[Rfam]
RNA sequence: GUUCACGGAAGUCUACGAUAGGCGCAAACAAACGGAUAUUUCUUACGAAAACAUCAACAACGCUUGGGAAGGUCUGAGUGGGCCGAACUCUCUCGGAGGGAAUGCGGCGAGAGCCGCUGCCUGAGGGACCAGAAAUGAGACCGCCUUCUCCAUCGCGGGAUGGAGCCACACAGUGUGUGCUUCUGAUUGGGGGAAGGAAGGGUUGAAACAUCCCUCGGUGGCCGGAUAAUCACAGUUCAAUUCGUGGAAUGGUGCAAGCACCACAACUCGAUUCAGACUACUCUCCGUGGAC
Numbered sequence: 001g002u003u004c005a006c007g008g009a010a011g012u013c014u015a016c017g018a019u020a021g022g023c024g025c026a027a028a029c030a031a032a033c034g035g036a037u038a039u040u041u042c043u044u045a046c047g048a049a050a051a052c053a054u055c056a057a058c059a060a061c062g063c064u065u066g067g068g069a070a071g072g073u074c075u076g077a078g079u080g081g082g083c084c085g086a087a088c089u090c091u092c093u094c095g096g097a098g099g100g101a102a103u104g105c106g107g108c109g110a111g112a113g114c115c116g117c118u119g120c121c122u123g124a125g126g127g128a129c130c131a132g133a134a135a136u137g138a139g140a141c142c143g144c145c146u147u148c149u150c151c152a153u154c155g156c157g158g159g160a161u162g163g164a165g166c167c168a169c170a171c172a173g174u175g176u177g178u179g180c181u182u183c184u185g186a187u188u189g190g191g192g193g194a195a196g197g198a199a200g201g202g203u204u205g206a207a208a209c210a211u212c213c214c215u216c217g218g219u220g221g222c223c224g225g226a227u228a229a230u231c232a233c234a235g236u237u238c239a240a241u242u243c244g245u246g247g248a249a250u251g252g253u254g255c256a257a258g259c260a261c262c263a264c265a266a267c268u269c270g271a272u273u274c275a276g277a278c279u280a281c282u283c284u285c286c287g288u289g290g291a292c
Stems, first nucleotide, its partner, number of pairs: 001292004007286003012248007020065005035055003039051002074276005081223004089101004104117005121218007141201002250263005